A member of the RNA family "Small nucleolar RNA SNORA70" from Panthera leo, 122 nucleotides long.

RNA sequence: GGGAGCCGACUGUGCCUUUCCCCGCGGAGGCUGCUGUGCCGUGGCGGCAAACAGCAGCCUCCCCGGUAGCGUGUGCAGCCUACUGACUGCACGGGUGGCCCUAAGGGACCGCGGAGACAGCG
Numbered sequence: 001g002g003g004a005g006c007c008g009a010c011u012g013u014g015c016c017u018u019u020c021c022c023c024g025c026g027g028a029g030g031c032u033g034c035u036g037u038g039c040c041g042u043g044g045c046g047g048c049a050a051a052c053a054g055c056a057g058c059c060u061c062c063c064c065g066g067u068a069g070c071g072u073g074u075g076c077a078g079c080c081u082a083c084u085g086a087c088u089g090c091a092c093g094g095g096u097g098g099c100c101c102u103a104a105g106g107g108a109c110c111g112c113g114g115a116g117a118c119a120g121c122g
Stems, first nucleotide, its partner, number of pairs: 009035001011033002015030004065110003076098001078096004
Dot-bracket structure: ........(.((..((((........)))).)).).............................(((........(.((((...........)))).).........)))............
Annotation
A reference for the family is Charette and Gray (2000), "Pseudouridine in RNA: what, where, how, and why", IUBMB Life. A search with the family's covariance model found it, with a score of 74 bits. snoRNA U70 seems to be exclusive to mammals and is a member of the H/ACA class of snoRNA which contain H (ANANNA) and ACA box motifs. H/ACA box snoRNAs are involved in the conversion of uridines to pseudouridines (5-ribosyluracil) a constituent of structural RNAs (transfer, ribosomal, small nuclear, and small nucleolar). By type it is an H/ACA-box small nucleolar RNA.